[Rfam]
RNA: Guanidine-II riboswitch aptamer (mini-ykkC)
RNA sequence: CGGCGGGGACGACCCCGCCCCUGAUGGGUAUUGUGGGGACGGCCCCG
Numbered sequence: 001c002g003g004c005g006g007g008g009a010c011g012a013c014c015c016c017g018c019c020c021c022u023g024a025u026g027g028g029u030a031u032u033g034u035g036g037g038g039a040c041g042g043c044c045c046c047g
Base pairs, nucleotide, nucleotide: 002019003018004017005016006015007014008013034047035046036045037044038043